Rfam assigns this 448-nucleotide RNA from Chamaesiphon minutus to the family "Bacterial RNase P class A". NCBI's taxonomy places the organism under Bacteria, Bacillati, Cyanophyceae, Gomontiellales, Chamaesiphon minutus.
[Rfam]
Nucleotides: 448
Base pairs, nucleotide, nucleotide: 001444002443003442004441005440007438008437012403013402014401015400016399017398018397020040021039022038023037024036025035026034027033045432046431047430049429050428051427052426053425054314055313056312057311063339064338068309069308070307072306073305074088075087076086077085078084089103090101091100092099093098104304105303109302110301111298112297113296125245126244127241128240129239130238131237134234253271254270255269256268257267258266273293274291275290276289277288278287279286280285318360319359322350323349324348325347326346330344331343334340367386372381373380374379
Number, partner (000 for none) and nucleotide at each position: 001444a002443g003442a004441g005440u006000a007438g008437g009000u010000g011000a012403g013402g014401u015400g016399g017398u018397u019000g020040c021039g022038a023037a024036u025035u026034c027033g028000c029000u030000c031000g032000u033027c034026g035025a036024a037023u038022u039021c040020g041000a042000g043000g044000a045432a046431a047430g048000u049429c050428c051427g052426g053425g054314c055313u056312u057311c058000c059000c060000a061000a062000a063339g064338a065000c066000c067000a068309a069308a070307c071000u072306u073305g074088c075087u076086g077085g078084g079000u080000a081000a082000u083000u084078c085077c086076c087075a088074g089103u090101g091100c092099g093098a094000g095000c096000g097000a098093u099092c100091g101090u102000g103089a104304g105303g106000a107000u108000a109302g110301u111298g112297c113296c114000a115000c116000a117000g118000a119000a120000a121000a122000a123000u124000a125245c126244c127241g128240c129239c130238a131237g132000a133000a134234u135000u136000a137000g138000g139000u140000u141000u142000u143000a144000g145000g146000c147000u148000u149000u150000a151000g152000g153000u154000g155000u156000u157000a158000g159000g160000u161000a162000u163000u164000a165000g166000g167000u168000u169000u170000u171000a172000g173000a174000u175000g176000u177000u178000a179000g180000g181000g182000a183000g184000a185000a186000u187000u188000c189000c190000c191000g192000a193000u194000u195000u196000c197000u198000u199000g200000u201000u202000c203000c204000u205000u206000a207000a208000a209000g210000c211000c212000u213000a214000a215000a216000g217000c218000c219000u220000a221000a222000a223000g224000c225000c226000u227000a228000a229000c230000u231000c232000c233000u234134a235000g236000a237131u238130u239129g240128g241127u242000a243000a244126g245125g246000g247000u248000g249000c250000a251000a252000a253271g254270g255269u256268g257267c258266g259000g260000u261000a262000a263000g264000a265000g266258c267257g268256c269255a270254c271253c272000a273293g274291c275290a276289g277288u278287a279286u280285c281000g282000a283000g284000a285280g286279g287278u288277a289276c290275u291274g292000g293273c294000u295000c296113g297112g298111u299000a300000a301110a302109c303105c304104c305073c306072g307070g308069u309068u310000g311057g312056a313055a314054g315000c316000a317000a318360g319359g320000c321000a322350g323349g324348a325347g326346c327000a328000a329000a330344g331343g332000u333000u334340g335000g336000u337000c338064u339063u340334u341000u342000c343331c344330c345000c346326g347325u348324u349323c350322c351000g352000u353000u354000a355000c356000g357000a358000u359319c360318c361000g362000c363000u364000u365000g366000a367386g368000g369000u370000a371000c372381u373380u374379g375000g376000u377000a378000a379374c380373a381372a382000a383000c384000u385000a386367c387000c388000c389000a390000g391000a392000u393000a394000g395000a396000u397018a398017a399016c400015c401014g402013c403012c404000g405000u406000c407000u408000c409000g410000c411000a412000a413000g414000a415000g416000a417000u418000a419000a420000c421000a422000g423000a424000a425053c426052c427051c428050g429049g430047c431046u432045u433000a434000c435000g436000u437008c438007c439000g440005a441004c442003u443002c444001u445000c446000u447000u448000u

It scores 224 bits against the family's covariance model. The base pairs follow the family's consensus structure, which is taken from published work.